RNA sequence: ACAACAUUCGGGUCGUCGAGUCUACUGAGCAACAUCACCGGCUCGUUGGAAGAUCUUUCCUUCGUCGU
Numbered sequence: 001a002c003a004a005c006a007u008u009c010g011g012g013u014c015g016u017c018g019a020g021u022c023u024a025c026u027g028a029g030c031a032a033c034a035u036c037a038c039c040g041g042c043u044c045g046u047u048g049g050a051a052g053a054u055c056u057u058u059c060c061u062u063c064g065u066c067g068u
Base pairs, nucleotide, nucleotide: 004065005064010059011058012057015054016053017052021050022049023048024047026045027044028043029042030041
This 68-nucleotide RNA sequence from Bombyx mori belongs to the Rfam family "mir-2774 microRNA precursor family". The organism belongs to Bombyx, within Eukaryota. It scores 64 bits against the family's covariance model. A reference for the family is Liu et al. (2010), "MicroRNAs of Bombyx mori identified by Solexa sequencing", BMC Genomics.